[Rfam]
RNA sequence: AGGGUUCCUGGCCUUCUCUUCCCAGUUCUUUCUGGAGUCGGAAAAAGCUGGGUUGAGAAGGUGAAAAAAAAAAAAA
Number, nucleotide and partner (000 for none) at each position: 001a000002g000003g000004g000005u000006u000007c000008c000009u000010g000011g000012c000013c000014u059015u058016c057017u056018c055019u000020u000021c052022c051023c050024a049025g048026u000027u000028c000029u044030u043031u042032c041033u040034g039035g000036a000037g000038u000039c034040g033041g032042a031043a030044a029045a000046a000047g000048c025049u024050g023051g022052g021053u000054u000055g018056a017057g016058a015059a014060g000061g000062u000063g000064a000065a000066a000067a000068a000069a000070a000071a000072a000073a000074a000075a000076a000

Description:
A member of the RNA family "mir-320 microRNA precursor family" from Prolemur simus, 76 nucleotides long. On this family, see Berezikov et al., Genome Res 2006: "Many novel mammalian microRNA candidates identified by extensive cloning and RAKE analysis".